[Rfam]
The family of this 163-nucleotide RNA sequence from Catenibacillus scindens is "Clostridiales-1 RNA". A search with the family's covariance model found it, with a score of 103 bits. The family's RNA type in Rfam is small RNA.
RNA sequence: UGAGACAAGAGCCACAAGGUCAUGCAGGCUGCGCUUGCGCAGUCAAGCAUGACUUUGUGGCGCGCAAAACGCCGAAAAGGAGCCAUUUUUCGGAGAAAAAUGUGCGGAUUUGAGGUGUUUUUAGGAUUGCGUGAGUACGAAGUGCGACGCAAUCCGUGUCUCA
Numbered sequence: 001u002g003a004g005a006c007a008a009g010a011g012c013c014a015c016a017a018g019g020u021c022a023u024g025c026a027g028g029c030u031g032c033g034c035u036u037g038c039g040c041a042g043u044c045a046a047g048c049a050u051g052a053c054u055u056u057g058u059g060g061c062g063c064g065c066a067a068a069a070c071g072c073c074g075a076a077a078a079g080g081a082g083c084c085a086u087u088u089u090u091c092g093g094a095g096a097a098a099a100a101u102g103u104g105c106g107g108a109u110u111u112g113a114g115g116u117g118u119u120u121u122u123a124g125g126a127u128u129g130c131g132u133g134a135g136u137a138c139g140a141a142g143u144g145c146g147a148c149g150c151a152a153u154c155c156g157u158g159u160c161u162c163a
Stems, first nucleotide, its partner, number of pairs: 001163007011061015028044001029042005066121008076111003082105002084102007124155007135145004